[Rfam]
Record summary:
Rfam assigns this 135-nucleotide sequence from Pomatostomus ruficeps to the family "Small Cajal body specific RNA 3". It is annotated as a small Cajal body RNA.

RNA sequence: GCUGGGACCAGUUGGGACCAGUCGUGGGCAAAAUAAACGGUUUUUUGUCCACUGUUGCAGUUUCCUAGAGCAAAGGGGAGGUCUCUGUCUGCUUUAGGACAGCCAGCUAAACCAGAUCGUUCCCCUCCUGACACG
Numbered sequence: 001g002c003u004g005g006g007a008c009c010a011g012u013u014g015g016g017a018c019c020a021g022u023c024g025u026g027g028g029c030a031a032a033a034u035a036a037a038c039g040g041u042u043u044u045u046u047g048u049c050c051a052c053u054g055u056u057g058c059a060g061u062u063u064c065c066u067a068g069a070g071c072a073a074a075g076g077g078g079a080g081g082u083c084u085c086u087g088u089c090u091g092c093u094u095u096a097g098g099a100c101a102g103c104c105a106g107c108u109a110a111a112c113c114a115g116a117u118c119g120u121u122c123c124c125c126u127c128c129u130g131a132c133a134c135g
Stems, first nucleotide, its partner, number of pairs: 004065003009060001011058002024052006032044002077128005085119001087117003091113001093111005
Background:
Gene Ontology terms of the family: nucleolus, RNA processing and Cajal body. A search with the family's covariance model found it, with a score of 95 bits.